RNA: Streptomyces RNA 2736
RNA sequence: CGCCCGGCCGGAUCCCGUGGGGGGAAUCCGCACCGGGACAUGGGAAGCUCCGAGGGCCAGAACACCGAC
Numbered sequence: 001c002g003c004c005c006g007g008c009c010g011g012a013u014c015c016c017g018u019g020g021g022g023g024g025a026a027u028c029c030g031c032a033c034c035g036g037g038a039c040a041u042g043g044g045a046a047g048c049u050c051c052g053a054g055g056g057c058c059a060g061a062a063c064a065c066c067g068a069c
Base pairs, nucleotide, nucleotide: 003037004036005035006034007033009030010029011028012027013026014024015023016022044069